[Rfam]
RNA sequence: UCUACCUUGGAUAACCCGGGAAGUCACUCUCCCUGGGCUCUGGGAGAGUGGCAUAGGGGAGCAUAAGGCUCUUGCCCCAUAAUGUACAGUCCCUUUCCACAACGUUGGAGAAGAAGCUGGGCCUUGUGUCUGCACCUGCAUAUUCCUACAACUUCUCAGAGUCCUUUGGGCAGUGACUGAGGAGAUACACCAUGCAGGAAACAAUG
Numbered sequence: 001u002c003u004a005c006c007u008u009g010g011a012u013a014a015c016c017c018g019g020g021a022a023g024u025c026a027c028u029c030u031c032c033c034u035g036g037g038c039u040c041u042g043g044g045a046g047a048g049u050g051g052c053a054u055a056g057g058g059g060a061g062c063a064u065a066a067g068g069c070u071c072u073u074g075c076c077c078c079a080u081a082a083u084g085u086a087c088a089g090u091c092c093c094u095u096u097c098c099a100c101a102a103c104g105u106u107g108g109a110g111a112a113g114a115a116g117c118u119g120g121g122c123c124u125u126g127u128g129u130c131u132g133c134a135c136c137u138g139c140a141u142a143u144u145c146c147u148a149c150a151a152c153u154u155c156u157c158a159g160a161g162u163c164c165u166u167u168g169g170g171c172a173g174u175g176a177c178u179g180a181g182g183a184g185a186u187a188c189a190c191c192a193u194g195c196a197g198g199a200a201a202c203a204a205u206g
Base pairs, nucleotide, nucleotide: 001108002107004105005104007102008045012042013041015037016036017035019030020029021028048100049099050098051097057093058092059091060090061087063085064084065083066080135198136197137196138195139194140193141192152184153183154182155181156180157179161171162170163169164168